RNA sequence: CCCACAAUUAAUAAAAUGUCUGUUUUGGUCCCUUAACUUUAUUGAAAGUAUCGGUUUGAUCAUUUCUGUUGAUUUAAUUAGAAAAAAGUUAAAUUUUGGUCCCUUAUCUUAUUUAAUUAACAUUAGUUUGAUCCCUUAACUUAUUUAAUUAGUAUUUAAAUUUAAUGUUUUUUUGAAUUAAAUUAACCGAAAGGAUCAAACUGAUACUUUAAAUAAAGUUUUGGGAUCUAAACGGACCUUUUAUUACUUAUUGGA
Numbered sequence: 001c002c003c004a005c006a007a008u009u010a011a012u013a014a015a016a017u018g019u020c021u022g023u024u025u026u027g028g029u030c031c032c033u034u035a036a037c038u039u040u041a042u043u044g045a046a047a048g049u050a051u052c053g054g055u056u057u058g059a060u061c062a063u064u065u066c067u068g069u070u071g072a073u074u075u076a077a078u079u080a081g082a083a084a085a086a087a088g089u090u091a092a093a094u095u096u097u098g099g100u101c102c103c104u105u106a107u108c109u110u111a112u113u114u115a116a117u118u119a120a121c122a123u124u125a126g127u128u129u130g131a132u133c134c135c136u137u138a139a140c141u142u143a144u145u146u147a148a149u150u151a152g153u154a155u156u157u158a159a160a161u162u163u164a165a166u167g168u169u170u171u172u173u174u175g176a177a178u179u180a181a182a183u184u185a186a187c188c189g190a191a192a193g194g195a196u197c198a199a200a201c202u203g204a205u206a207c208u209u210u211a212a213a214u215a216a217a218g219u220u221u222u223g224g225g226a227u228c229u230a231a232a233c234g235g236a237c238c239u240u241u242u243a244u245u246a247c248u249u250a251u252u253g254g255a
Stems, first nucleotide, its partner, number of pairs: 002253001004251001006249002023232003027228003031224002035220009045210003
This 255-nucleotide sequence from Medicago truncatula belongs to the Rfam family "MIR2655 microRNA precursor family". Lineage of the source: Eukaryota > Euphyllophyta > Spermatophyta > Pentapetalae > Medicago. It scores 172 bits against the family's covariance model. The family's consensus secondary structure was predicted with RNAalifold.